The record is a 100-nucleotide part of an RNA from Thermofilum pendens, which matches "Archaeal large subunit ribosomal RNA" in Rfam. The base pairs follow the family's consensus structure, which is taken from published work.
[Rfam]
RNA sequence: GGCGCGGCCCGAAAGGGUAGAUCCUCCCCGAAGGAAACCCGGGCGACCGGGGAGUACGAGGGGAGGGGACCGGGGUCGCGCCUUACGUCUAGAAACACGG
Numbered sequence: 001g002g003c004g005c006g007g008c009c010c011g012a013a014a015g016g017g018u019a020g021a022u023c024c025u026c027c028c029c030g031a032a033g034g035a036a037a038c039c040c041g042g043g044c045g046a047c048c049g050g051g052g053a054g055u056a057c058g059a060g061g062g063g064a065g066g067g068g069a070c071c072g073g074g075g076u077c078g079c080g081c082c083u084u085a086c087g088u089c090u091a092g093a094a095a096c097a098c099g100g
Base pairs, nucleotide, nucleotide: 001082002081003080004079005078006077007076008075009074010073015071016070023066024065025064026063027062028061029060033057038051039050040049041048042047086099087098088097
Taxonomically the source falls in Thermofilum pendens (Archaea, Thermoproteati, Thermofilales, Thermofilaceae).
The family has 91 seed sequences and 2,955 matches in Rfam 15.1.
Rfam's curators put it in the seed alignment.